RNA sequence: AAUCUGUCAUGGAUAACCUAGUGGAAGGCUCACCGCCAUGCCAAUUACCCUGCUUCGGCCGCCAAGGCCAGCAGGAAAGGUGCCUGGUACGAAUCCUGGGGUUGGCAUUUUCACUCGUGCGAGUAAUCCACGACGCUGGAGGCCAUUAAGCAAUGGAGAUGACACUUGAGGGAAGCAAUUCUGCAGAGACAUUUCCACCCUGGGAUGGCGUCGCCAGAUUACACCGUCUUGUUACAGGGACAUUGGCAAUUUGGUGUGACAACUACUUUU
Number, nucleotide and partner (000 for none) at each position: 001a000002a014003u013004c012005u000006g000007u000008c000009a000010u000011g000012g004013a003014u002015a000016a000017c000018c000019u000020a267021g266022u265023g264024g263025a000026a000027g000028g000029c258030u000031c256032a255033c254034c253035g252036c000037c000038a250039u248040g247041c246042c245043a244044a243045u242046u000047a000048c239049c238050c237051u000052g068053c067054u066055u065056c000057g063058g062059c000060c000061g000062c058063c057064a000065a055066g054067g053068c052069c000070a230071g229072c000073a000074g000075g228076a227077a000078a000079g225080g224081u223082g222083c000084c217085u216086g215087g214088u213089a211090c210091g209092a000093a206094u205095c204096c203097u202098g201099g200100g199101g198102u000103u145104g143105g000106c141107a000108u140109u139110u138111u000112c135113a000114c000115u133116c132117g131118u130119g129120c000121g128122a127123g000124u000125a000126a000127u122128c121129c119130a118131c117132g116133a115134c000135g112136c000137u000138g110139g109140a108141g106142g000143c104144c000145a103146u150147u000148a000149a000150g146151c000152a000153a000154u197155g196156g195157a194158g193159a192160u191161g000162a000163c000164a000165c188166u187167u186168g000169a000170g000171g000172g181173a180174a179175g000176c000177a000178a000179u174180u173181c172182u000183g000184c000185a000186g167187a166188g165189a000190c000191a160192u159193u158194u157195c156196c155197a154198c101199c100200c099201u098202g097203g096204g095205a094206u093207g000208g000209c091210g090211u089212c000213g088214c087215c086216a085217g084218a000219u000220u000221a000222c082223a081224c080225c079226g000227u076228c075229u071230u070231g000232u000233u000234a000235c000236a000237g050238g049239g048240a000241c000242a045243u044244u043245g042246g041247c040248a039249a000250u038251u000252u035253g034254g033255u032256g031257u000258g029259a000260c000261a000262a000263c024264u023265a022266c021267u020268u000269u000270u000
Rfam assigns this 270-nucleotide RNA from Penicillium coprophilum to the family "Fungal signal recognition particle RNA". A search with the family's covariance model found it, with a score of 166 bits. Pairs were carried over by alignment from the consensus structure, which is taken from published work. Rfam classes the family as a non-coding RNA gene. The family is grouped with related families in Rfam's "SRP clan".